A member of the RNA family "c-di-GMP-II-GAG riboswitch aptamer" from Deinococcus peraridilitoris, 85 nucleotides long. Clan: c-di-GMP_II riboswitch clan. The base pairs follow the family's consensus structure, which is taken from published work. Taxonomically the source falls in Deinococcus peraridilitoris (Bacteria, Thermotogati, Deinococci, Deinococcus).
RNA sequence: CCGCACCUCGGAGGCGAGGACCUUCACCCACUUAUCCGGUCACCUGGGGUGAAGCGAGCCAAUGGUGAGACCGCACGAGGAGACA
Number, nucleotide and partner (000 for none) at each position: 001c000002c000003g000004c082005a000006c080007c079008u078009c077010g076011g000012a000013g060014g059015c058016g000017a000018g000019g000020a000021c000022c054023u053024u052025c051026a050027c049028c048029c047030a000031c000032u000033u000034a000035u000036c000037c000038g072039g071040u068041c067042a066043c065044c064045u000046g000047g029048g028049g027050u026051g025052a024053a023054g022055c000056g000057a000058g015059c014060c013061a000062a000063u000064g044065g043066u042067g041068a040069g000070a000071c039072c038073g000074c000075a000076c010077g009078a008079g007080g006081a000082g004083a000084c000085a000